[Rfam]
RNA: Bacterial large subunit ribosomal RNA, nucleotides 1950 to 2538
RNA sequence: CCCGCGGUUAGACGGAAAGACCCCGUGAACCUUUACUAUAGCUUUGCACUGGUAUUAGGAAUUAGAUGUGCAGGAUAGGUGGGAGACUAUGAAACAGUGGCGCCAGCCAUUGUGGAGUCAUCCUUGAGAUACCACCCUUUUGAUUUUUGAUAUCUAACCGAGGUCCUUGAAUCAGGAUCCGAGACAAUGCAUGGUGGGUAGUUUGACUGGGGCGGUCGCCUCCCAAAGAGUAACGGAGGCGUGCGAUGGUUAGCUCAGGUUGGUCGGAAAUCAACUGUUAGAGUGCAAUGGCAUAAGCUAGCCUGACUGCGAGUCUGACAAGACGAGCAGAGACGAAAGUCGGUCAUAGUGAUCCGGUGGUCCCGAGUGGAAGGGCCAUCGCUCAACGAAUAAAAGGUACUCCGGGGAUAACAGGCUGAUGAUUUCCAAGCGUCCAUAGCGACGAAAUCGUUUGGCACCUCGAUGUCGGCUCAUCACAUCCUGGGGCUGGAGAAGGUCCCAAGGGUUCGGCUGUUCGCCGAUUAAAGUGGUACGUGAGCUGGGUUUAGAACGUCGUGAGACAGUUCGGUCCCUAUCUGCCGUGGGUGUA
Numbered sequence: 001c002c003c004g005c006g007g008u009u010a011g012a013c014g015g016a017a018a019g020a021c022c023c024c025g026u027g028a029a030c031c032u033u034u035a036c037u038a039u040a041g042c043u044u045u046g047c048a049c050u051g052g053u054a055u056u057a058g059g060a061a062u063u064a065g066a067u068g069u070g071c072a073g074g075a076u077a078g079g080u081g082g083g084a085g086a087c088u089a090u091g092a093a094a095c096a097g098u099g100g101c102g103c104c105a106g107c108c109a110u111u112g113u114g115g116a117g118u119c120a121u122c123c124u125u126g127a128g129a130u131a132c133c134a135c136c137c138u139u140u141u142g143a144u145u146u147u148u149g150a151u152a153u154c155u156a157a158c159c160g161a162g163g164u165c166c167u168u169g170a171a172u173c174a175g176g177a178u179c180c181g182a183g184a185c186a187a188u189g190c191a192u193g194g195u196g197g198g199u200a201g202u203u204u205g206a207c208u209g210g211g212g213c214g215g216u217c218g219c220c221u222c223c224c225a226a227a228g229a230g231u232a233a234c235g236g237a238g239g240c241g242u243g244c245g246a247u248g249g250u251u252a253g254c255u256c257a258g259g260u261u262g263g264u265c266g267g268a269a270a271u272c273a274a275c276u277g278u279u280a281g282a283g284u285g286c287a288a289u290g291g292c293a294u295a296a297g298c299u300a301g302c303c304u305g306a307c308u309g310c311g312a313g314u315c316u317g318a319c320a321a322g323a324c325g326a327g328c329a330g331a332g333a334c335g336a337a338a339g340u341c342g343g344u345c346a347u348a349g350u351g352a353u354c355c356g357g358u359g360g361u362c363c364c365g366a367g368u369g370g371a372a373g374g375g376c377c378a379u380c381g382c383u384c385a386a387c388g389a390a391u392a393a394a395a396g397g398u399a400c401u402c403c404g405g406g407g408a409u410a411a412c413a414g415g416c417u418g419a420u421g422a423u424u425u426c427c428a429a430g431c432g433u434c435c436a437u438a439g440c441g442a443c444g445a446a447a448u449c450g451u452u453u454g455g456c457a458c459c460u461c462g463a464u465g466u467c468g469g470c471u472c473a474u475c476a477c478a479u480c481c482u483g484g485g486g487c488u489g490g491a492g493a494a495g496g497u498c499c500c501a502a503g504g505g506u507u508c509g510g511c512u513g514u515u516c517g518c519c520g521a522u523u524a525a526a527g528u529g530g531u532a533c534g535u536g537a538g539c540u541g542g543g544u545u546u547a548g549a550a551c552g553u554c555g556u557g558a559g560a561c562a563g564u565u566c567g568g569u570c571c572c573u574a575u576c577u578g579c580c581g582u583g584g585g586u587g588u589a
Stems, first nucleotide, its partner, number of pairs: 001585008010577003014572002022406004027402002029398005035202004042194002045191004051154016068137001078136005085119003094113008159181002162179006205217004218240006241387001243344002249302006255282002258276006283292002307330004313324003332341003355381007363374002415456003419453001420450007430440002467542001468540004472534001473531005480505002483500006507521005548566004552561003